[Rfam]
RNA: Alphaproteobacteria transfer-messenger RNA
Organism: Novosphingobium sp. ST904
RNA sequence: GCCCUUUUCUUUUCCGGCCGGCGCCCUAUAUGAGGUUCCGCCGGUUUCGACCGGAUAUGAUGAUAAACUGCGCCGUAUAAUAGGCACAGCGGACCCGGGGGCGGUACCCGGCGGCUCCACCAUCACCCGUUCCUUCGGAGUUUUCCGGUGGGACAGCCCUGUUGUCGCAGGGGUGAUGACGGGGCCGAACUAGGAUCGACGUGUGUUGAAAAGCGGUGUUUUCAUUCGGGCUGAGUAACCCGUUCAAGGCUCAAAACUCACAAGUGCCAACGACAACGAAGCACUCGCUCUCGCCGCGUAAUUCUAGGGGCUAACGCCCUGACGUUACAAAGCUAAAGCGCGGUUGGACCCACCGGGCAACAGAAGGGAUUCCA
Numbered sequence: 001g002c003c004c005u006u007u008u009c010u011u012u013u014c015c016g017g018c019c020g021g022c023g024c025c026c027u028a029u030a031u032g033a034g035g036u037u038c039c040g041c042c043g044g045u046u047u048c049g050a051c052c053g054g055a056u057a058u059g060a061u062g063a064u065a066a067a068c069u070g071c072g073c074c075g076u077a078u079a080a081u082a083g084g085c086a087c088a089g090c091g092g093a094c095c096c097g098g099g100g101g102c103g104g105u106a107c108c109c110g111g112c113g114g115c116u117c118c119a120c121c122a123u124c125a126c127c128c129g130u131u132c133c134u135u136c137g138g139a140g141u142u143u144u145c146c147g148g149u150g151g152g153a154c155a156g157c158c159c160u161g162u163u164g165u166c167g168c169a170g171g172g173g174u175g176a177u178g179a180c181g182g183g184g185c186c187g188a189a190c191u192a193g194g195a196u197c198g199a200c201g202u203g204u205g206u207u208g209a210a211a212a213g214c215g216g217u218g219u220u221u222u223c224a225u226u227c228g229g230g231c232u233g234a235g236u237a238a239c240c241c242g243u244u245c246a247a248g249g250c251u252c253a254a255a256a257c258u259c260a261c262a263a264g265u266g267c268c269a270a271c272g273a274c275a276a277c278g279a280a281g282c283a284c285u286c287g288c289u290c291u292c293g294c295c296g297c298g299u300a301a302u303u304c305u306a307g308g309g310g311c312u313a314a315c316g317c318c319c320u321g322a323c324g325u326u327a328c329a330a331a332g333c334u335a336a337a338g339c340g341c342g343g344u345u346g347g348a349c350c351c352a353c354c355g356g357g358c359a360a361c362a363g364a365a366g367g368g369a370u371u372c373c374a
Stems, first nucleotide, its partner, number of pairs: 041054004059226005070219007085205003089202003095111005112187007227242004232253003341355004346373003351368001